RNA sequence: AAUCGUUGCAAGUUCCCGAUAGGAUUCGUUAUUCGAAGAUGCCUUGUAACCGAAAAUAUUUAGGGGGAAACUAUUAUG
Numbered sequence: 001a002a003u004c005g006u007u008g009c010a011a012g013u014u015c016c017c018g019a020u021a022g023g024a025u026u027c028g029u030u031a032u033u034c035g036a037a038g039a040u041g042c043c044u045u046g047u048a049a050c051c052g053a054a055a056a057u058a059u060u061u062a063g064g065g066g067g068a069a070a071c072u073a074u075u076a077u078g
Stems, first nucleotide, its partner, number of pairs: 013069005021044003025037004050064002